[Rfam]
RNA sequence: UUUUGUGCGGUGAUGAAGCAAUUUGUGGACUAGAGUUUCUGAUCAUUUAGCGGUUUCAAACCCCUAAAUGGUUGAAGACAAACCCUUGGCUGUCUGAGCAUUCUA
Numbered sequence: 001u002u003u004u005g006u007g008c009g010g011u012g013a014u015g016a017a018g019c020a021a022u023u024u025g026u027g028g029a030c031u032a033g034a035g036u037u038u039c040u041g042a043u044c045a046u047u048u049a050g051c052g053g054u055u056u057c058a059a060a061c062c063c064c065u066a067a068a069u070g071g072u073u074g075a076a077g078a079c080a081a082a083c084c085c086u087u088g089g090c091u092g093u094c095u096g097a098g099c100a101u102u103c104u105a
Stems, first nucleotide, its partner, number of pairs: 001105001005101004036077004044070007

This 105-nucleotide RNA sequence from Solanum tuberosum belongs to the Rfam family "Small nucleolar RNA Z157/R69/R10".
Lineage of the source: Eukaryota > Spermatophyta > Pentapetalae > lamiids > Solanum.
For this family Rfam cites "The high diversity of snoRNAs in plants: identification and comparative study of 120 snoRNA genes from Oryza sativa" (Chen et al., Nucleic Acids Res, 2003).
By type it is a C/D-box small nucleolar RNA.
The match comes from Rfam's covariance-model search (62 bits).